This 46-nucleotide sequence from Novipirellula herctigrandis belongs to the Rfam family "Acido-Lenti-1 RNA". A search with the family's covariance model found it, with a score of 39 bits. It is annotated as a small RNA.
[Rfam]
RNA sequence: CCUCGGGUUAGAACCCGAGGCUGUCACGUGGCGUCGCUCCACGACU
Number, nucleotide and partner (000 for none) at each position: 001c020002c019003u018004c017005g016006g015007g014008u013009u000010a000011g000012a000013a008014c007015c006016c005017g004018a003019g002020g001021c000022u000023g000024u000025c000026a000027c000028g000029u000030g000031g000032c000033g045034u044035c043036g042037c000038u000039c000040c000041a000042c036043g035044a034045c033046u000